[Rfam]
RNA: SAM riboswitch aptamer (S box leader)
RNA sequence: UGCUCAUCAAGAGUUGGUGGAGGGAUUGGCCCAAUGAAACCGCGGCAACCAUUUGGAAUCCAAAACGGUGCCAAUUCCUGCGGAAUAAUCCGCAAGAUGGGAG
Numbered sequence: 001u002g003c004u005c006a007u008c009a010a011g012a013g014u015u016g017g018u019g020g021a022g023g024g025a026u027u028g029g030c031c032c033a034a035u036g037a038a039a040c041c042g043c044g045g046c047a048a049c050c051a052u053u054u055g056g057a058a059u060c061c062a063a064a065a066c067g068g069u070g071c072c073a074a075u076u077c078c079u080g081c082g083g084a085a086u087a088a089u090c091c092g093c094a095a096g097a098u099g100g101g102a103g
Base pairs, nucleotide, nucleotide: 001103003101004100005099006098007097008096013043015042016041017040018039022032023031024030026080028078029077044072045071046070047069049068050067052063053062076095081092082091083090084089